[Rfam]
Description:
Rfam assigns this 305-nucleotide RNA sequence from Chiloscyllium punctatum to the family "Nuclear RNase P". Rfam describes the family as follows. Ribonuclease P (RNase P) is a ubiquitous endoribonuclease, found in archaea, bacteria and eukarya as well as chloroplasts and mitochondria. Its best characterised activity is the generation of mature 5'-ends of tRNAs by cleaving the 5'-leader elements of precursor-tRNAs. Cellular RNase Ps are ribonucleoproteins. RNA from bacterial RNase Ps retains its catalytic activity in the absence of the protein subunit, i.e. it is a ribozyme. Isolated eukaryotic and archaeal RNase P RNA has not been shown to retain its catalytic function, but is still essential for the catalytic activity of the holoenzyme. Although the archaeal and eukaryotic holoenzyme s have a much greater protein content than the bacterial ones, the RNA cores from all the three lineages are homologous -- helices corresponding to P1, P2, P3, P4, and P10/11 are common to all cellular RNase P RNAs. Yet, there is considerable sequence variation, particularly among the eukaryotic RNAs. For this family Rfam cites "Ribonuclease P: unity and diversity in a tRNA processing ribozyme" (Frank and Pace, Annu Rev Biochem, 1998). By type it is a ribozyme. Gene Ontology terms of the family: ribonuclease P complex, tRNA processing and ribonuclease P activity.
RNA sequence: GUGGGGUGAAGCUCACUUUAGAGGUCACGUGCUGAGUGUAUUAUCACUCCUCAUGUCCUCGGGGAAGGUCUGAGACAAGAGCCAAUCACUACCCUUGCAGGGUAUCACCUGAUUCAGGUGAGGAAGUCACCAGGCAUCUGGUCUGGGCAGUAGCAGAAAGCAGGAGAAGCAAUUCCAAGACAAUUGGAUGAUGUGGAUGCAGCUUCUACUCAGAAUGGGAAGGGCUUCUGGCUAGCCAUGUGAGUUCAAUGUGUGAGAUGAGUCAAACAAGACUCACAACCCAAUUCAGACUACUCUCACCCCAC
Numbered sequence: 001g002u003g004g005g006g007u008g009a010a011g012c013u014c015a016c017u018u019u020a021g022a023g024g025u026c027a028c029g030u031g032c033u034g035a036g037u038g039u040a041u042u043a044u045c046a047c048u049c050c051u052c053a054u055g056u057c058c059u060c061g062g063g064g065a066a067g068g069u070c071u072g073a074g075a076c077a078a079g080a081g082c083c084a085a086u087c088a089c090u091a092c093c094c095u096u097g098c099a100g101g102g103u104a105u106c107a108c109c110u111g112a113u114u115c116a117g118g119u120g121a122g123g124a125a126g127u128c129a130c131c132a133g134g135c136a137u138c139u140g141g142u143c144u145g146g147g148c149a150g151u152a153g154c155a156g157a158a159a160g161c162a163g164g165a166g167a168a169g170c171a172a173u174u175c176c177a178a179g180a181c182a183a184u185u186g187g188a189u190g191a192u193g194u195g196g197a198u199g200c201a202g203c204u205u206c207u208a209c210u211c212a213g214a215a216u217g218g219g220a221a222g223g224g225c226u227u228c229u230g231g232c233u234a235g236c237c238a239u240g241u242g243a244g245u246u247c248a249a250u251g252u253g254u255g256a257g258a259u260g261a262g263u264c265a266a267a268c269a270a271g272a273c274u275c276a277c278a279a280c281c282c283a284a285u286u287c288a289g290a291c292u293a294c295u296c297u298c299a300c301c302c303c304a305c
Stems, first nucleotide, its partner, number of pairs: 001305004007299003012257005018251001021060004034049005070289005080233004090104005105121006122229007142214006259276006
Dot-bracket structure: ((((..(((..(((((.(..((((.........(((((......))))).......)))).........[[[[[.....((((......(((((.....)))))((((((.....))))))(((((((.............((((((.............................................................))))))........))))))))))).................).))))).((((((......))))))........]]]]].......)))..))))